[Rfam]
Shown here is a 112-nucleotide RNA sequence from Microcebus murinus, a member of the family "Y RNA". It scores 42 bits against the family's covariance model. Taxonomically the source falls in Microcebus (Eukaryota, Mammalia, Primates, Cheirogaleidae). The family's RNA type in Rfam is non-coding RNA gene.
RNA sequence: GACUGGUCCAAAUGUAGUGAGUUAUCUCAAUUGAUUGUUCCCAGUUACAAAUUGAACUCCUUUUUCUACUCUUUCCCUUUCCCUUUUUCUUACUGCAAUUGACUAAUCUUAA
Number, nucleotide and partner (000 for none) at each position: 001g108002a107003c000004u105005g104006g103007u102008c101009c000010a100011a099012a000013u000014g096015u095016a094017g093018u092019g091020a090021g089022u000023u000024a000025u000026c000027u000028c000029a000030a000031u000032u000033g000034a000035u000036u000037g000038u000039u000040c000041c000042c000043a000044g076045u000046u000047a073048c000049a000050a000051a000052u000053u000054g000055a000056a000057c000058u000059c000060c000061u000062u000063u000064u000065u000066c000067u000068a000069c000070u000071c000072u000073u047074u000075c000076c044077c000078u000079u000080u000081c000082c000083c000084u000085u000086u000087u000088u000089c021090u020091u019092a018093c017094u016095g015096c014097a000098a000099u011100u010101g008102a007103c006104u005105a004106a000107u002108c001109u000110u000111a000112a000